[Rfam]
The family of this 188-nucleotide sequence from Oceanobacillus indicireducens is "6S / SsrS RNA". A search with the family's covariance model found it, with a score of 75 bits. Rfam describes the family as follows. E. coli 6S RNA was the first non coding RNA to be sequenced, but its function was unknown until recently. It consists of 184 nucleotides that fold into an extended hairpin structure with a large single-stranded internal bulge. The 6S RNA specifically associates with RNA polymerase holoenzyme containing the sigma70 specificity factor. This interaction represses expression from a sigma70-dependent promoter during stationary phase. 6S RNA homologs have recently been identified in most bacterial genomes. Many Gram-positive species have two copies of 6S RNA. In Bacillus subtilis, both copies appear to interact with RNA polymerase holoenzyme containing the housekeeping sigma factor and be expressed during different stages of growth. In many proteobacteria, 6S RNA may be processed from a transcript encoding homologs of the E. coli YgfA protein which is a putative 5-formyltetrahydrofolate cycloligase activity. It is annotated as a non-coding RNA gene. The base pairs follow the family's consensus structure, which is taken from published work.

RNA sequence: UACAAGCUACAAUGUUCGUAUGGAAUUAAGUUUUAACCUCUAAAUAAUGAAUAGGGAGUUUUAUAUCGAAGUUGGAAUGUCGGGCCGUCUUUGAACGGAAGACAAGAAGGCUUCUGCAAACACCCACUUGAACAAAGUGAGUGGUUUAAAACUUUUUAUUUCAGAAAUACGGCAAUUGUGGCUGUACC
Number, nucleotide and partner (000 for none) at each position: 001u000002a000003c000004a000005a183006g182007c181008u180009a179010c178011a177012a000013u174014g173015u172016u000017c171018g170019u169020a000021u000022g000023g000024a000025a000026u000027u000028a000029a153030g152031u151032u150033u000034u148035a147036a146037c144038c143039u000040c000041u000042a000043a000044a000045u000046a000047a000048u000049g000050a000051a000052u000053a000054g125055g124056g123057a000058g121059u120060u119061u118062u000063a000064u000065a115066u000067c000068g114069a113070a112071g111072u110073u109074g000075g000076a000077a000078u000079g103080u102081c000082g000083g000084g000085c098086c097087g096088u095089c000090u000091u000092u000093g000094a000095a088096c087097g086098g085099a000100a000101g000102a080103c079104a000105a000106g000107a000108a000109g073110g072111c071112u070113u069114c068115u065116g000117c000118a061119a060120a059121c058122a000123c056124c055125c054126a000127c000128u000129u000130g000131a000132a000133c000134a000135a000136a000137g000138u000139g000140a000141g000142u000143g038144g037145u000146u036147u035148a034149a000150a032151a031152c030153u029154u000155u000156u000157u000158a000159u000160u000161u000162c000163a000164g000165a000166a000167a000168u000169a019170c018171g017172g015173c014174a013175a000176u000177u011178g010179u009180g008181g007182c006183u005184g000185u000186a000187c000188c000